The family of this 103-nucleotide RNA sequence from Oceanobacillus sp. J11TS1 is "SAM riboswitch aptamer (S box leader)". Gene Ontology term of the family: regulation of gene expression.

[Rfam]
RNA sequence: UUCUUAUCAAGAAAGGUGGAGGGACUGGCCCGUUGAAACCUUAGCAGCAGACGAUUAUUCGUACUGUGCUAAUUCCAGAAGCAUGUUUGCUUGAAGAUAAGAA
Numbered sequence: 001u002u003c004u005u006a007u008c009a010a011g012a013a014a015g016g017u018g019g020a021g022g023g024a025c026u027g028g029c030c031c032g033u034u035g036a037a038a039c040c041u042u043a044g045c046a047g048c049a050g051a052c053g054a055u056u057a058u059u060c061g062u063a064c065u066g067u068g069c070u071a072a073u074u075c076c077a078g079a080a081g082c083a084u085g086u087u088u089g090c091u092u093g094a095a096g097a098u099a100a101g102a103a
Stems, first nucleotide, its partner, number of pairs: 001103008013042005021031003025078004043070004048066002051062004074095001079092005